Bacillaceae-1 RNA: a 67-nucleotide sequence from Paraliobacillus ryukyuensis. The organism belongs to Paraliobacillus, within Bacteria. Pairs were carried over by alignment from the consensus structure, which is taken from published work. The match comes from Rfam's covariance-model search (48 bits).
RNA sequence: GUGAAGGAAUGUUAGACUAAUAACGUCACAUCGUGUGACAGCAUCUAACUGACCCACGUCUUGUAGU
Dot-bracket structure: ..........((((((........(((((.....)))))....))))))....(.((.....)).).